[Rfam]
RNA sequence: AUUCAUCUUCGGGGCAGGGUGCAAUUCCCGACCGGCGGUAUGAGAGCAUUCUCGAGCCCGCGAGCGCAAGCUGAUGUGGUGUGAAUCCACAGCCGACAGUACAGUCUGGAUGGGAGAGGGUGGAG
Numbered sequence: 001a002u003u004c005a006u007c008u009u010c011g012g013g014g015c016a017g018g019g020u021g022c023a024a025u026u027c028c029c030g031a032c033c034g035g036c037g038g039u040a041u042g043a044g045a046g047c048a049u050u051c052u053c054g055a056g057c058c059c060g061c062g063a064g065c066g067c068a069a070g071c072u073g074a075u076g077u078g079g080u081g082u083g084a085a086u087c088c089a090c091a092g093c094c095g096a097c098a099g100u101a102c103a104g105u106c107u108g109g110a111u112g113g114g115a116g117a118g119g120g121u122g123g124a125g
Stems, first nucleotide, its partner, number of pairs: 003123008017029003031105002033095002035061004056093002064071002075091005097108003